[Rfam]
The family of this 113-nucleotide RNA sequence from Candidatus Brocadia fulgida is "c-di-GMP-I-GGC riboswitch aptamer". The match comes from Rfam's covariance-model search (60 bits). The organism belongs to Candidatus Brocadia, within Bacteria. Clan: c-di-GMP_I riboswitch clan.
RNA sequence: UAUGAUAAGGGCAAACCCGGAGUGAUCCGGGGACGCAAAGUAACAGGGUCUUUUGUAGGGGCGUAUUGCAAUAUGCCCCUACCGUUAGGAAAAAGACAGCCUUACUGCCGAAG
Numbered sequence: 001u002a003u004g005a006u007a008a009g010g011g012c013a014a015a016c017c018c019g020g021a022g023u024g025a026u027c028c029g030g031g032g033a034c035g036c037a038a039a040g041u042a043a044c045a046g047g048g049u050c051u052u053u054u055g056u057a058g059g060g061g062c063g064u065a066u067u068g069c070a071a072u073a074u075g076c077c078c079c080u081a082c083c084g085u086u087a088g089g090a091a092a093a094a095g096a097c098a099g100c101c102u103u104a105c106u107g108c109c110g111a112a113g
Base pairs, nucleotide, nucleotide: 001113003110004109011036012035016031017030018029019028020027021026034099039106040105041104042103045102046101047100048097049096050095051094052093053092054091